[Rfam]
UnaL2 LINE 3' element: a 54-nucleotide sequence from Salmo salar. A search with the family's covariance model found it, with a score of 57 bits. Its family is annotated with transposition, RNA-mediated in the Gene Ontology. The family's consensus secondary structure is taken from published work. The eel long interspersed element (LINE) UnaL2 and its partner short interspersed element (SINE) share a conserved 3' tail containing a stem-loop that is critical for their retrotransposition. Presumably, the first step of retrotransposition is the recognition of their 3' tails by UnaL2-encoded reverse transcriptase. The solution structure of a 17-nucleotide RNA derived from the 3' tail of UnaL2 was determined by NMR. A reference for the family is Baba et al. (2004), "Solution structure of an RNA stem-loop derived from the 3' conserved region of eel LINE UnaL2", RNA. It is annotated as a cis-regulatory element.

RNA sequence: UGUACGCACUACUGUAAGUCGCUCUGCCAAAGAGCGUCUGCUAAAUGACAAAAA
Numbered sequence: 001u002g003u004a005c006g007c008a009c010u011a012c013u014g015u016a017a018g019u020c021g022c023u024c025u026g027c028c029a030a031a032g033a034g035c036g037u038c039u040g041c042u043a044a045a046u047g048a049c050a051a052a053a054a
Stems, first nucleotide, its partner, number of pairs: 013043001014041003020036006